RNA sequence: GGGGCGACACUCUUAGAAUCGCUCCAGCAUGAGCGUGUUAAUAGUGUCGCGUAAGGCCAUGCGUCAUGGUUAGGGAAUC
Numbered sequence: 001g002g003g004g005c006g007a008c009a010c011u012c013u014u015a016g017a018a019u020c021g022c023u024c025c026a027g028c029a030u031g032a033g034c035g036u037g038u039u040a041a042u043a044g045u046g047u048c049g050c051g052u053a054a055g056g057c058c059a060u061g062c063g064u065c066a067u068g069g070u071u072a073g074g075g076a077a078u079c
Base pairs, nucleotide, nucleotide: 001025002024003023004022005021006020038073039072040071041070042069044067045066046065048063049062050061051060052059